[Rfam]
About this RNA
The record is an 83-nucleotide RNA sequence from Aeromonas hydrophila, which matches "tRNA" in Rfam. Rfam classes the family as a transfer RNA. The sequence is in the family's curated seed alignment.
RNA sequence: GCGAAGGUGGCGGAAUUGGUAGACGCGCUAGCUUCAGGUGUUAGUGCCCCCCGGGUGUGAGGGUUCGAGUCCCUCUCUUCGCA
Numbered sequence: 001g002c003g004a005a006g007g008u009g010g011c012g013g014a015a016u017u018g019g020u021a022g023a024c025g026c027g028c029u030a031g032c033u034u035c036a037g038g039u040g041u042u043a044g045u046g047c048c049c050c051c052c053g054g055g056u057g058u059g060a061g062g063g064u065u066c067g068a069g070u071c072c073c074u075c076u077c078u079u080c081g082c083a
Stems, first nucleotide, its partner, number of pairs: 001082007010026003028044005059075005